[Rfam]
Rfam assigns this 372-nucleotide RNA from Leucobacter sp. cx-328 to the family "transfer-messenger RNA". Rfam classes the family as a non-coding RNA gene. For this family Rfam cites "Phylogenetic analysis of tmRNA secondary structure" (Williams and Bartel, RNA, 1996).
RNA sequence: GGGGCCGAUCGGUUUCGACACGUCGAUUUAAGACCGUGGGAAGCGGGCCGAGGACGCGGAGUUAUCUCGUUAACGCCCUUCGCAAAACACAGGUGCAAACGCUAAGCGCACCGACUUCGCUCUCGCUGCCUAAGCACGAGACCGAGUCCGUCAGGCCGGGUAUGCCUUCGCCCCGGUUUCCUGGCGUCAUUUAGAGGGCUUGCUGGUUCGUUGAGUGUCAGGGCGAAUCGGGACUUUCACUGAUGCUGGGCCUGUCGUUCUAGAUGUUUGUGGCAAAGAACGGGGCCGAGUAGAACGUCUGCACAAACUACGCUCGUAGAAGACAUGGAAUUGUCGAAGUGGACCGGGGUUCGAUUCCCCGCGGCUCCACUG
Numbered sequence: 001g002g003g004g005c006c007g008a009u010c011g012g013u014u015u016c017g018a019c020a021c022g023u024c025g026a027u028u029u030a031a032g033a034c035c036g037u038g039g040g041a042a043g044c045g046g047g048c049c050g051a052g053g054a055c056g057c058g059g060a061g062u063u064a065u066c067u068c069g070u071u072a073a074c075g076c077c078c079u080u081c082g083c084a085a086a087a088c089a090c091a092g093g094u095g096c097a098a099a100c101g102c103u104a105a106g107c108g109c110a111c112c113g114a115c116u117u118c119g120c121u122c123u124c125g126c127u128g129c130c131u132a133a134g135c136a137c138g139a140g141a142c143c144g145a146g147u148c149c150g151u152c153a154g155g156c157c158g159g160g161u162a163u164g165c166c167u168u169c170g171c172c173c174c175g176g177u178u179u180c181c182u183g184g185c186g187u188c189a190u191u192u193a194g195a196g197g198g199c200u201u202g203c204u205g206g207u208u209c210g211u212u213g214a215g216u217g218u219c220a221g222g223g224c225g226a227a228u229c230g231g232g233a234c235u236u237u238c239a240c241u242g243a244u245g246c247u248g249g250g251c252c253u254g255u256c257g258u259u260c261u262a263g264a265u266g267u268u269u270g271u272g273g274c275a276a277a278g279a280a281c282g283g284g285g286c287c288g289a290g291u292a293g294a295a296c297g298u299c300u301g302c303a304c305a306a307a308c309u310a311c312g313c314u315c316g317u318a319g320a321a322g323a324c325a326u327g328g329a330a331u332u333g334u335c336g337a338a339g340u341g342g343a344c345c346g347g348g349g350u351u352c353g354a355u356u357c358c359c360c361g362c363g364g365c366u367c368c369a370c371u372g
Stems, first nucleotide, its partner, number of pairs: 001368007019341003023337005031331001034328005044316005049069005056083006121141005127136003149186006156176002158173004164199006203231009217246002249287005256282003261276001263274001266308004273300001345361005
The organism belongs to Leucobacter, within Bacteria.
Its Rfam clan is "tRNA clan".